The family of this 40-nucleotide sequence from Rousettus aegyptiacus is "Prion pseudoknot". From the family's description: This family represents a predicted pseudoknot structure found in prion protein mRNA. It has been suggested that the family has a possible effect in prion protein translation. Gene Ontology term of the family: translation. Taxonomically the source falls in Rousettus (Eukaryota, Opisthokonta, Metazoa, Amniota).

RNA sequence: CCAUGGUGGAGUCUGGGGUCAGCCCCAUGGUGGAGUCUGG
Numbered sequence: 001c002c003a004u005g006g007u008g009g010a011g012u013c014u015g016g017g018g019u020c021a022g023c024c025c026c027a028u029g030g031u032g033g034a035g036u037c038u039g040g
Stems, first nucleotide, its partner, number of pairs: 001030006
The family's RNA type in Rfam is cis-regulatory element. The base pairs follow the family's consensus structure, which is taken from published work. It scores 50 bits against the family's covariance model.